[Rfam]
RNA sequence: GGUAGGACCACUGGACCUGGUGGCUGGCCCGGUCUUCAAAACCGGUGGGGGGCAUGGAGACAUGUCCCCGGGAGGUUCGAUUCCUCUGUCCUACC
Dot-bracket structure: ((((((((...(.(.((....)).).).(((((.......)))))..(((((((........)))))))..((((.......)))).))))))))
RNA: Selenocysteine transfer RNA